[Rfam]
RNA sequence: UUUGAGGGGAAUGUUGUCUGGCUCGGGGCUACUUUUAAUUUCUCUCUCUUUUGAUAUCUUCUUUUCUCGAUCUCCUAGCUUGAUCUUUUGAUCUCUCAAAUCGAUCUUAAGAAAAAGAUCAGUCAAAGAGAUGAGAGUAGAUGUCUGUAGAUCUCGGACCAGGCUUCAUUCCCCCCAAA
Numbered sequence: 001u002u003u004g005a006g007g008g009g010a011a012u013g014u015u016g017u018c019u020g021g022c023u024c025g026g027g028g029c030u031a032c033u034u035u036u037a038a039u040u041u042c043u044c045u046c047u048c049u050u051u052u053g054a055u056a057u058c059u060u061c062u063u064u065u066c067u068c069g070a071u072c073u074c075c076u077a078g079c080u081u082g083a084u085c086u087u088u089u090g091a092u093c094u095c096u097c098a099a100a101u102c103g104a105u106c107u108u109a110a111g112a113a114a115a116a117g118a119u120c121a122g123u124c125a126a127a128g129a130g131a132u133g134a135g136a137g138u139a140g141a142u143g144u145c146u147g148u149a150g151a152u153c154u155c156g157g158a159c160c161a162g163g164c165u166u167c168a169u170u171c172c173c174c175c176c177a178a179a
Stems, first nucleotide, its partner, number of pairs: 001179004006174008016164006024156005
The family of this 179-nucleotide RNA is "mir-166 microRNA precursor family". Rfam's curators put it in the seed alignment. On this family, see Reinhart et al., Genes Dev 2002: "MicroRNAs in plants".